[Rfam]
RNA sequence: CUGGGUCAAAUGCAGUAGGUGAUCGAACCGGACCCAAAAUGAAAGGAGAGAUACUGCCCAGGCGAAAGCCUAAAACUGCCCUUUGACGGCCACACGCGGACGCUGCUUGCAUGGCGGGCUAUUGCGCUAACCCGUUUCAUGCGUGGGGCCAAAGUAGUUUAGAAGCGCACCGACACCACAACUAUGCGGAGGGCGAAUACCAUUUAUGACCAGC
Number, nucleotide and partner (000 for none) at each position: 001c000002u000003g000004g034005g033006u032007c031008a000009a000010a000011u000012g000013c000014a000015g000016u000017a000018g000019g000020u000021g000022a000023u000024c000025g000026a000027a000028c000029c000030g000031g007032a006033c005034c004035c000036a000037a000038a000039a000040u000041g000042a000043a000044a000045g000046g000047a000048g000049a000050g000051a000052u000053a000054c000055u000056g000057c000058c000059c000060a071061g070062g069063c068064g000065a000066a000067a000068g063069c062070c061071u060072a000073a000074a000075a000076c000077u000078g194079c193080c192081c191082u190083u189084u188085g187086a000087c186088g150089g149090c148091c147092a000093c145094a144095c143096g142097c141098g000099g000100a000101c000102g110103c109104u000105g000106c000107u000108u000109g103110c102111a000112u000113g136114g135115c134116g133117g132118g131119c000120u000121a000122u000123u000124g000125c000126g000127c000128u000129a000130a000131c118132c117133c116134g115135u114136u113137u000138c000139a000140u000141g097142c096143g095144u094145g093146g000147g091148g090149c089150c088151a000152a000153a000154g185155u184156a183157g182158u181159u000160u180161a000162g171163a000164a000165g000166c000167g000168c000169a000170c000171c162172g000173a000174c000175a000176c000177c000178a000179c000180a160181a158182c157183u156184a155185u154186g087187c085188g084189g083190a082191g081192g080193g079194c078195g000196a000197a000198u000199a000200c000201c000202a000203u000204u000205u000206a000207u000208g000209a000210c000211c000212a000213g000214c000

A member of the RNA family "RT-2 RNA", 214 nucleotides long.